Small nucleolar RNA SNORA20: a 129-nucleotide sequence from Chrysochloris asiatica. The family has 17 seed sequences and 437 matches in Rfam 15.1. Clan: SNORA20 clan. About the family: ACA20 is a member of the H/ACA class of snoRNA that guide the sites of modification of uridines to pseudouridines. By type it is an H/ACA-box small nucleolar RNA. The base pairs follow the family's consensus structure, which was predicted with ILM. Lineage of the source: Eukaryota > Teleostomi > Theria > Afrosoricida > Chrysochloris.
RNA sequence: CUUCCCAUUGAUUUGCUGCUAUUAUCUAUCAAUGAUAUGAGCAGUUAUACGCAUGGGAUAAAAUAUGUAGGACCUUUGUAAAUUGAGAUAAAGUCAUCAUUUUGUCUCCUUUGCAUGGUCUAGACAUUG
Numbered sequence: 001c002u003u004c005c006c007a008u009u010g011a012u013u014u015g016c017u018g019c020u021a022u023u024a025u026c027u028a029u030c031a032a033u034g035a036u037a038u039g040a041g042c043a044g045u046u047a048u049a050c051g052c053a054u055g056g057g058a059u060a061a062a063a064u065a066u067g068u069a070g071g072a073c074c075u076u077u078g079u080a081a082a083u084u085g086a087g088a089u090a091a092a093g094u095c096a097u098c099a100u101u102u103u104g105u106c107u108c109c110u111u112u113g114c115a116u117g118g119u120c121u122a123g124a125c126a127u128u129g
Base pairs, nucleotide, nucleotide: 003058004057005056006055007054008053015045016044017043018042019041020040022037025035026034068123070121071120072119073118074117077115078114079113080112085108086107087106088105089104090103091102092101093100094099
Dot-bracket structure: ..((((((......((((((.(..((.......)).)..)))))).......)))))).........(.(((((..((((....((((((((((....))))))))))...)))).))))).)......